[Rfam]
RNA: Group II catalytic intron D1-D4-1
RNA sequence: CAACGAUCAUGGCGACAUGAUGGUGAAUCAUGAGAAGUCAGCCGAGGUCAUAGUAGUAACGAUACUGACCGUUACGAAGGAC
Number, nucleotide and partner (000 for none) at each position: 001c025002a024003a000004c023005g000006a021007u020008c019009a018010u017011g016012g000013c000014g000015a000016c011017a010018u009019g008020a007021u006022g000023g004024u002025g001026a000027a000028u000029c000030a000031u000032g000033a000034g000035a000036a000037g000038u045039c044040a000041g000042c000043c000044g039045a038046g000047g082048u081049c080050a000051u000052a000053g000054u000055a000056g075057u074058a073059a072060c071061g070062a000063u000064a000065c000066u000067g000068a000069c000070c061071g060072u059073u058074a057075c056076g000077a000078a000079g000080g049081a048082c047